[Rfam]
Nucleotides: 132
Base pairs, nucleotide, nucleotide: 001080002079003078004077005076006075007074008073009072010071011070012069013068017066018065019064020063021062022061023060024059025058028054029053033049034048035047089096101132102131103130104129105128106127107126108125109124110123111122
Number, partner (000 for none) and nucleotide at each position: 001080g002079u003078c004077g005076g006075u007074u008073g009072g010071u011070c012069g013068g014000a015000c016000c017066c018065c019064g020063u021062u022061g023060g024059u025058c026000c027000c028054g029053g030000a031000u032000c033049c034048u035047g036000a037000a038000c039000a040000g041000c042000c043000c044000c045000c046000c047035c048034a049033g050000c051000c052000c053029c054028c055000c056000u057000g058025g059024a060023u061022c062021g063020g064019c065018g066017g067000a068013c069012u070011g071010g072009c073008c074007a075006g076005c077004c078003g079002a080001c081000a082000c083000a084000c085000u086000a087000c088000c089096u090000c091000c092000c093000c094000a095000a096089a097000c098000g099000c100000u101132a102131a103130c104129c105128c106127g107126c108125g109124c110123g111122g112000a113000a114000c115000u116000c117000u118000c119000c120000a121000g122111c123110c124109g125108c126107g127106c128105g129104g130103g131102u132101u